[Rfam]
RNA sequence: CUAAGCCAUGACUGUAAGUCGCUUUGGAUAAAAACGUCUGCUAAAUGGCAUAUU
Numbered sequence: 001c002u003a004a005g006c007c008a009u010g011a012c013u014g015u016a017a018g019u020c021g022c023u024u025u026g027g028a029u030a031a032a033a034a035c036g037u038c039u040g041c042u043a044a045a046u047g048g049c050a051u052a053u054u
Stems, first nucleotide, its partner, number of pairs: 013043001014041003020036002023033003